[Rfam]
RNA sequence: CCAAAGGCUCUUUUCAGAGCCACUCAGUCUUCCUAAAGAGAACUGG
Numbered sequence: 001c002c003a004a005a006g007g008c009u010c011u012u013u014u015c016a017g018a019g020c021c022a023c024u025c026a027g028u029c030u031u032c033c034u035a036a037a038g039a040g041a042a043c044u045g046g
Stems, first nucleotide, its partner, number of pairs: 006021006
RNA: Histone 3' UTR stem-loop